Bacillus sRNA ncr1015: a 117-nucleotide RNA from Paenibacillus sp. FSL R5-0912. The family's consensus secondary structure is taken from published work. Taxonomically the source falls in Paenibacillus (Bacteria, Bacillati, Bacillota, Paenibacillaceae). A search with the family's covariance model found it, with a score of 82 bits. On this family, see Irnov et al., Nucleic Acids Res 2010: "Identification of regulatory RNAs in Bacillus subtilis". It is annotated as a small RNA.

RNA sequence: AUAUAAGAUGCAUUAACUACGUUUAUAGAAACUAGUAUAGUUGUGAAAUGAUUAUAUCAUCGUGUAUGUAUAUAUGCAAUAUGAAGAACCUGAGCUGCAGCUCAGGUUCUUUUUUUG
Numbered sequence: 001a002u003a004u005a006a007g008a009u010g011c012a013u014u015a016a017c018u019a020c021g022u023u024u025a026u027a028g029a030a031a032c033u034a035g036u037a038u039a040g041u042u043g044u045g046a047a048a049u050g051a052u053u054a055u056a057u058c059a060u061c062g063u064g065u066a067u068g069u070a071u072a073u074a075u076g077c078a079a080u081a082u083g084a085a086g087a088a089c090c091u092g093a094g095c096u097g098c099a100g101c102u103c104a105g106g107u108u109c110u111u112u113u114u115u116u117g
Stems, first nucleotide, its partner, number of pairs: 035071004039065001042062002083112011